[Rfam]
RNA: Selenocysteine transfer RNA
RNA sequence: GGAGGCGAACGGGGUCUGGUGGCCCUCCUGGUCUUCAAAACCAGUGGUACGCUCAACACGUACGGUGGGUUCGAUUCCCAUCCGCCUCC
Dot-bracket structure: (((((((.(.((((((....)))))).(((((.......)))))..(((((.......)))))..((((.......))))).)))))))